A member of the RNA family "Small nucleolar RNA SNORA41" from Sorex araneus, 133 nucleotides long.
Gene Ontology terms of the family: nucleolus and RNA processing.
The family's RNA type in Rfam is H/ACA-box small nucleolar RNA.
For this family Rfam cites "RNomics: an experimental approach that identifies 201 candidates for novel, small, non-messenger RNAs in mouse" (Huttenhofer et al., EMBO J, 2001).
ACA41 is a member of the H/ACA class of snoRNA that guide the sites of modification of uridines to pseudouridines.
RNA sequence: UUCCAUAGCAGCAGGUCUGCAAUUGCUCUUCCUGUAGCAAUUGUGGCAGUCAUCUGUGAGGAAGAAAUUGUUACUUGGUUAACACUGCUUUCUUAGCAAAAUAGACAGUAAUAGUGUAAUUUGUCAGGCUAGA
Number, nucleotide and partner (000 for none) at each position: 001u000002u000003c000004c058005a057006u056007a000008g000009c000010a000011g000012c000013a000014g000015g000016u000017c046018u045019g044020c043021a042022a041023u040024u039025g038026c000027u000028c000029u000030u000031c000032c000033u000034g000035u000036a000037g000038c025039a024040a023041u022042u021043g020044u019045g018046g017047c000048a000049g000050u000051c000052a000053u000054c000055u000056g006057u005058g004059a000060g000061g000062a000063a000064g000065a000066a000067a000068u000069u000070g000071u000072u000073a122074c000075u119076u118077g000078g000079u000080u000081a000082a000083c000084a000085c000086u111087g000088c108089u107090u000091u105092c104093u103094u000095a000096g000097c000098a000099a000100a000101a000102u000103a093104g092105a091106c000107a089108g088109u000110a000111a086112u000113a000114g000115u000116g000117u000118a076119a075120u000121u000122u073123g000124u000125c000126a000127g000128g000129c000130u000131a000132g000133a000